[Rfam]
RNA sequence: GGUGAUAAAUCAUGUCGCAUAAUAGACGCAGCGGACCCGGGGGCAGUACCCGGCGGCUCCACCACAAGCCUCGGCAACGAGGUUUAUGACGGGGCCGAACCAGGAUCGACGUGUGUUCAAAGGCGAUGUCUUUGCCCGGCCUGAUUGAGCCGUAAAACCGAUCAAAACCACAAGUGCUAACGAUAACGAAGCACUCGCGAUUGCUGCGUAA
Number, nucleotide and partner (000 for none) at each position: 001g136002g135003u134004g133005a132006u000007a000008a000009a000010u000011c000012a000013u000014g000015u126016c125017g124018c123019a000020u000021a000022a000023u000024a000025g000026a000027c115028g114029c113030a000031g112032c111033g110034g000035a000036c000037c053038c052039g051040g050041g049042g000043g000044c000045a000046g000047u000048a000049c041050c040051c039052g038053g037054c097055g096056g095057c094058u093059c092060c091061a000062c000063c000064a000065c000066a000067a000068g000069c000070c000071u000072c000073g000074g000075c000076a000077a000078c000079g000080a000081g000082g000083u000084u000085u000086a000087u000088g000089a000090c000091g060092g059093g058094g057095c056096c055097g054098a000099a000100c000101c000102a000103g000104g000105a000106u000107c000108g000109a000110c033111g032112u031113g029114u028115g027116u000117u000118c000119a000120a000121a000122g000123g018124c017125g016126a015127u000128g000129u000130c000131u000132u005133u004134g003135c002136c001137c152138g151139g150140c149141c000142u000143g000144a000145u000146u000147g000148a000149g140150c139151c138152g137153u000154a000155a000156a000157a000158c000159c000160g000161a000162u000163c000164a000165a000166a000167a000168c000169c000170a000171c000172a000173a000174g000175u000176g000177c000178u000179a000180a000181c000182g000183a000184u000185a000186a000187c000188g000189a000190a000191g000192c000193a000194c000195u000196c000197g000198c000199g000200a000201u000202u000203g000204c000205u000206g000207c000208g000209u000210a000211a000
RNA: permuted transfer-messenger RNA
Organism: Alterirhizorhabdus solaris